[Rfam]
RNA sequence: UUUACUAUAUGAAGACAUCCUCUGAAACCAAGCUAGUUGUGAGGGGGGGUAUCUGAUGAAAUGUAAA
Numbered sequence: 001u002u003u004a005c006u007a008u009a010u011g012a013a014g015a016c017a018u019c020c021u022c023u024g025a026a027a028c029c030a031a032g033c034u035a036g037u038u039g040u041g042a043g044g045g046g047g048g049g050u051a052u053c054u055g056a057u058g059a060a061a062u063g064u065a066a067a
Stems, first nucleotide, its partner, number of pairs: 001067005014053002017050007029039003

A member of the RNA family "Selenocysteine insertion sequence 1" from Dicentrarchus labrax, 67 nucleotides long. Its family is annotated with selenocysteine incorporation in the Gene Ontology. It is annotated as a cis-regulatory element. A search with the family's covariance model found it, with a score of 37 bits. The incorporation of selenocysteine into a protein sequence is directed by an in-frame UGA codon (usually a stop codon) within the coding region of the mRNA. Selenoprotein mRNAs contain a conserved secondary structure in the 3' UTR that is required for the distinction of UGA stop from UGA selenocysteine. The selenocysteine insertion sequence (SECIS) is around 60 nt in length and adopts a hairpin structure which is sufficiently well-defined and conserved to act as a computational screen for selenoprotein genes. NCBI's taxonomy places the organism under Eukaryota, Gnathostomata, Actinopterygii, Eupercaria, Dicentrarchus. For this family Rfam cites "A novel RNA structural motif in the selenocysteine insertion element of eukaryotic selenoprotein mRNAs" (Walczak et al., RNA, 1996).